[Rfam]
RNA sequence: AUCCCCCUGCUGAUACCGAAGCCUCACGUUCCACGCGAGGUAUAUGUAGGUACAGCGGGGGGAU
Numbered sequence: 001a002u003c004c005c006c007c008u009g010c011u012g013a014u015a016c017c018g019a020a021g022c023c024u025c026a027c028g029u030u031c032c033a034c035g036c037g038a039g040g041u042a043u044a045u046g047u048a049g050g051u052a053c054a055g056c057g058g059g060g061g062g063a064u
Stems, first nucleotide, its partner, number of pairs: 001064012014052004021041005027035003